Annotation:
The record is a 71-nucleotide RNA from Terriglobus roseus, which matches "Fluoride riboswitch aptamer (crcB RNA motif)" in Rfam. The family's consensus secondary structure is taken from published work. Lineage of the source: Bacteria > Pseudomonadati > Acidobacteriota > Terriglobales > Terriglobus roseus. The match comes from Rfam's covariance-model search (38 bits). On this family, see Baker et al., Science 2012: "Widespread genetic switches and toxicity resistance proteins for fluoride".
RNA sequence: CACCUGCGUGGCGUUGGGGUUCCGCCAGAACCGCACGCGGCCUGGCCGCUGCUGAUGACUCCUACGAAUCG
Numbered sequence: 001c002a003c004c005u006g007c008g009u010g011g012c013g014u015u016g017g018g019g020u021u022c023c024g025c026c027a028g029a030a031c032c033g034c035a036c037g038c039g040g041c042c043u044g045g046c047c048g049c050u051g052c053u054g055a056u057g058a059c060u061c062c063u064a065c066g067a068a069u070c071g
Stems, first nucleotide, its partner, number of pairs: 010026004016062006033052003